[Rfam]
Rfam assigns this 106-nucleotide RNA from Podarcis muralis to the family "mir-223 microRNA precursor family".
RNA sequence: CUGAGGAUCUGCAGUGCUUCUCUCCGUGUAUUUGACAAGCUGAGUUCGACACUCAAUGUGGCAGAGUGUCAGUUUGUCAAAUAUGCAAAGUGCGGCAUUUGCCCAG
Numbered sequence: 001c002u003g004a005g006g007a008u009c010u011g012c013a014g015u016g017c018u019u020c021u022c023u024c025c026g027u028g029u030a031u032u033u034g035a036c037a038a039g040c041u042g043a044g045u046u047c048g049a050c051a052c053u054c055a056a057u058g059u060g061g062c063a064g065a066g067u068g069u070c071a072g073u074u075u076g077u078c079a080a081a082u083a084u085g086c087a088a089a090g091u092g093c094g095g096c097a098u099u100u101g102c103c104c105a106g
Stems, first nucleotide, its partner, number of pairs: 020092001022090002026086001028084014048070004053065002
The match comes from Rfam's covariance-model search (103 bits).
Taxonomically the source falls in Podarcis (Eukaryota, Craniata, Lepidosauria, Squamata).
The base pairs follow the family's consensus structure, which was predicted with RNAalifold.
The family has 27 seed sequences and 674 matches in Rfam 15.1.